[Rfam]
RNA sequence: AAUAAUAGUAAAUACUUUAAUAAGAAUUUAAAGGACCGAAAUAAGGAAAGGUUUUAUAUAAAUAGUAAUUAAACGUAAAUUAAUCGAUCCUAAGCUAUAAAGAAGUUCUAUUUUAAAGGGGCGCUUUUACCCUAUAUAGCGAAAAGGAAGCUAGUUAAUAUUCUAGUACCUAGAUAUAGGUUUUAUAUAGUAACGUAACUAAACGUAGAGACGAUAGUAGGGGCCCUAGGAAGAGUUCUCUUUUCUUCUUAACGAUCUAUUACCCUAAAAUCGAUUUAUCCGGAGAUAGGGUUUAACGGUCGGAAGAGCUUAGCGCUUCUAUUAAGUCUAGUAUAUCCUUAACGUCCAUCAAAAAUCUAUAAAAAGGAAUAAUUCUUAUACUAGGUCGUACUUAUAAUUAUAAUAGGUCUCUAAGGUAAAUAGCCUCUAAUUAA
Number, nucleotide and partner (000 for none) at each position: 001a000002a000003u000004a000005a000006u000007a000008g000009u000010a000011a000012a000013u000014a000015c033016u032017u031018u030019a029020a028021u000022a000023a000024g000025a000026a000027u000028u020029u019030a018031a017032a016033g015034g432035a431036c000037c000038g000039a000040a000041a000042u000043a412044a000045g410046g409047a000048a000049a392050g391051g000052u000053u000054u078055u077056a076057u075058a000059u073060a000061a000062a000063u071064a070065g000066u000067a000068a000069u000070u064071a063072a000073a059074c000075g057076u056077a055078a054079a000080u000081u000082a000083a000084u000085c388086g387087a386088u000089c146090c000091u000092a000093a000094g140095c139096u000097a111098u110099a000100a109101a000102g107103a000104a000105g000106u000107u102108c000109u100110a098111u097112u000113u000114u000115a000116a000117a000118g000119g132120g131121g130122c000123g000124c000125u000126u000127u000128u000129a000130c121131c120132c119133u000134a000135u000136a000137u000138a000139g095140c094141g000142a000143a000144a000145a000146g089147g000148a000149a000150g167151c166152u165153a164154g163155u000156u000157a000158a000159u000160a000161u000162u000163c154164u153165a152166g151167u150168a000169c000170c384171u383172a382173g381174a000175u380176a379177u378178a377179g376180g374181u000182u000183u000184u000185a000186u197187a196188u195189a000190g000191u000192a000193a000194c000195g188196u187197a186198a000199c000200u000201a000202a000203a000204c000205g360206u359207a358208g357209a356210g000211a000212c000213g346214a345215u344216a000217g000218u341219a340220g339221g338222g337223g336224c000225c000226c331227u330228a329229g249230g248231a247232a246233g245234a244235g000236u000237u000238c000239u000240c000241u000242u000243u000244u234245c233246u232247u231248c230249u229250u000251a000252a000253c302254g301255a300256u299257c298258u000259a000260u000261u000262a292263c291264c290265c289266u288267a287268a000269a000270a000271u283272c282273g281274a000275u000276u000277u000278a000279u000280c000281c273282g272283g271284a000285g000286a000287u267288a266289g265290g264291g263292u262293u000294u000295a000296a000297c000298g257299g256300u255301c254302g253303g000304a000305a000306g000307a000308g000309c326310u325311u324312a323313g322314c000315g320316c000317u000318u000319c000320u315321a000322u313323u312324a311325a310326g309327u000328c000329u228330a227331g226332u000333a000334u000335a000336u223337c222338c221339u220340u219341a218342a000343c000344g215345u214346c213347c000348a000349u000350c000351a000352a000353a000354a000355a000356u209357c208358u207359a206360u205361a000362a000363a000364a000365a000366g000367g000368a000369a000370u000371a000372a000373u000374u180375c000376u179377u178378a177379u176380a175381c173382u172383a171384g170385g000386u087387c086388g085389u000390a000391c050392u049393u000394a000395u000396a000397a000398u407399u406400a000401u000402a000403a000404u000405a000406g399407g398408u000409c046410u045411c000412u043413a000414a426415g425416g424417u423418a000419a000420a000421u000422a000423g417424c416425c415426u414427c000428u000429a000430a000431u035432u034433a000434a000

About this RNA
Rfam assigns this 434-nucleotide part of an RNA from Verticillium dahliae to the family "Eukaryotic large subunit ribosomal RNA". Pairs were carried over by alignment from the consensus structure, which is taken from published work. Rfam's curators put it in the seed alignment.